[Rfam]
RNA sequence: CCAACCGAAACAUGUCGAAGCAUGACCUCUGCUAAGGUAGUCCGUGCGGUAGAGCCACCGAUUGGGAGACCCGACUCCGAGAGGAGUCGGCCUCCCUGUCGAACUCCGAACGUACGGACGCCACGGAAGCAGGGAGUCCGGUGUCCCGGGGUAAGCUUGGGCACCAUGAGGGGAACAACCCAGAGCCUGGUUAAGGACCCAAAGUGUGGACUAAGUGUGAUUUGAAGGUAGUCUCGAGCCCUAGACAGCCGGGAGGUGAGCUUAGAAGCAGCUACCCUCUAAGAAAAGCGUAACAGCUUACCGGCCGAGGUUUGAGGCGCCCAAAAUGAUCGGGACUCAAGUCCACCUCCGAGACCUGGCGGCGCGGUUGACACCGCGAUCCUGUAGGUUGGCGUUCCGUUUGGGUGGAAGCUCGGGCGAGAGUUCGAGUGGACCGAACGGGAACGAAAAU
Numbered sequence: 001c002c003a004a005c006c007g008a009a010a011c012a013u014g015u016c017g018a019a020g021c022a023u024g025a026c027c028u029c030u031g032c033u034a035a036g037g038u039a040g041u042c043c044g045u046g047c048g049g050u051a052g053a054g055c056c057a058c059c060g061a062u063u064g065g066g067a068g069a070c071c072c073g074a075c076u077c078c079g080a081g082a083g084g085a086g087u088c089g090g091c092c093u094c095c096c097u098g099u100c101g102a103a104c105u106c107c108g109a110a111c112g113u114a115c116g117g118a119c120g121c122c123a124c125g126g127a128a129g130c131a132g133g134g135a136g137u138c139c140g141g142u143g144u145c146c147c148g149g150g151g152u153a154a155g156c157u158u159g160g161g162c163a164c165c166a167u168g169a170g171g172g173g174a175a176c177a178a179c180c181c182a183g184a185g186c187c188u189g190g191u192u193a194a195g196g197a198c199c200c201a202a203a204g205u206g207u208g209g210a211c212u213a214a215g216u217g218u219g220a221u222u223u224g225a226a227g228g229u230a231g232u233c234u235c236g237a238g239c240c241c242u243a244g245a246c247a248g249c250c251g252g253g254a255g256g257u258g259a260g261c262u263u264a265g266a267a268g269c270a271g272c273u274a275c276c277c278u279c280u281a282a283g284a285a286a287a288g289c290g291u292a293a294c295a296g297c298u299u300a301c302c303g304g305c306c307g308a309g310g311u312u313u314g315a316g317g318c319g320c321c322c323a324a325a326a327u328g329a330u331c332g333g334g335a336c337u338c339a340a341g342u343c344c345a346c347c348u349c350c351g352a353g354a355c356c357u358g359g360c361g362g363c364g365c366g367g368u369u370g371a372c373a374c375c376g377c378g379a380u381c382c383u384g385u386a387g388g389u390u391g392g393c394g395u396u397c398c399g400u401u402u403g404g405g406u407g408g409a410a411g412c413u414c415g416g417g418c419g420a421g422a423g424u425u426c427g428a429g430u431g432g433a434c435c436g437a438a439c440g441g442g443a444a445c446g447a448a449a450a451u
Base pairs, nucleotide, nucleotide: 001392002391003390004389005388006387011024012023013022014021015020026136027134028133029132030131031130032129036122037121038120040119041118042117043116044115045114046113047112052107053105054104060100061099062098064096065095066094067093068092073088074087075086076085077084078083140165141164142163143162144161145160146159148158149157170181171180172179185360186359187358189356190355191354195350196349197348204347206346207345208344209343210342211341227321228320229319231318232317233316234315235314236313237312238311239310240309248305249304250303251302252301254278255277256276259273260272261271279283284299288297289296361382362381363378364377365376366375367374393446395443396442397441398440399439400438401437402436403435404434411430412429413428414427415426416425417424418423

Description: Shown here is a 451-nucleotide part of an RNA from Candidatus Halobonum tyrrellensis, a member of the family "Archaeal large subunit ribosomal RNA". The family's consensus secondary structure is taken from published work.